The family of this 105-nucleotide sequence from Odoribacter splanchnicus is "SAM riboswitch aptamer (S box leader)". The source organism's lineage runs through Bacteria, Pseudomonadati, Bacteroidales, Odoribacteraceae and Odoribacter splanchnicus.

RNA sequence: GAAUUAUAAAGAGGAGUUGAGAGACUGGGCUCUAUGAAACUCCGACAACCUCCGGAACUUUCCGAAAGGUGCCAAAACCCGGCCUGAUAACAGGAGUUAUAAUUU
Numbered sequence: 001g002a003a004u005u006a007u008a009a010a011g012a013g014g015a016g017u018u019g020a021g022a023g024a025c026u027g028g029g030c031u032c033u034a035u036g037a038a039a040c041u042c043c044g045a046c047a048a049c050c051u052c053c054g055g056a057a058c059u060u061u062c063c064g065a066a067a068g069g070u071g072c073c074a075a076a077a078c079c080c081g082g083c084c085u086g087a088u089a090a091c092a093g094g095a096g097u098u099a100u101a102a103u104u105u
Stems, first nucleotide, its partner, number of pairs: 001105008013043005021032003026082001028080001029078001044073001046071002049069002051065002054062001077097001083094004